[Rfam]
RNA sequence: CUGAUCGAAUGAUGAACAAUUUUUAAUGUGUUUCAUCAUUUUAUAUAAAUUUACAGGAGGCAAAUUGAUAUCGGCGAGAUAUCGUUUCGGUCGUUAUAUUUUUUGAUUGACGAUUUGAUUGUUGCUCGUCUACAU
Numbered sequence: 001c002u003g004a005u006c007g008a009a010u011g012a013u014g015a016a017c018a019a020u021u022u023u024u025a026a027u028g029u030g031u032u033u034c035a036u037c038a039u040u041u042u043a044u045a046u047a048a049a050u051u052u053a054c055a056g057g058a059g060g061c062a063a064a065u066u067g068a069u070a071u072c073g074g075c076g077a078g079a080u081a082u083c084g085u086u087u088c089g090g091u092c093g094u095u096a097u098a099u100u101u102u103u104u105g106a107u108u109g110a111c112g113a114u115u116u117g118a119u120u121g122u123u124g125c126u127c128g129u130c131u132a133c134a135u
Stems, first nucleotide, its partner, number of pairs: 007041005014033005073130001075128004081119004090114007099105001
This 135-nucleotide RNA from Anisodus acutangulus belongs to the Rfam family "Small nucleolar RNA snoR111".
The family has 6 seed sequences and 533 matches in Rfam 15.1.
Rfam classes the family as an H/ACA-box small nucleolar RNA.
Taxonomically the source falls in Anisodus (Eukaryota, Streptophyta, Streptophytina, Embryophyta).
The literature on the family includes a 2002 paper in Curr Biol by Marker et al., "Experimental RNomics: identification of 140 candidates for small non-messenger RNAs in the plant Arabidopsis thaliana".
Its family is annotated with RNA processing and nucleolus in the Gene Ontology.
A search with the family's covariance model found it, with a score of 83 bits.